[Rfam]
RNA: Acido-Lenti-1 RNA
Organism: Lacipirellula limnantheis
RNA sequence: CCAGGGGCUCGCACCCCUGGCUACAUUCUUUCGCCCCUCCGGGGCU
Numbered sequence: 001c002c003a004g005g006g007g008c009u010c011g012c013a014c015c016c017c018u019g020g021c022u023a024c025a026u027u028c029u030u031u032c033g034c035c036c037c038u039c040c041g042g043g044g045c046u
Stems, first nucleotide, its partner, number of pairs: 001020007033045005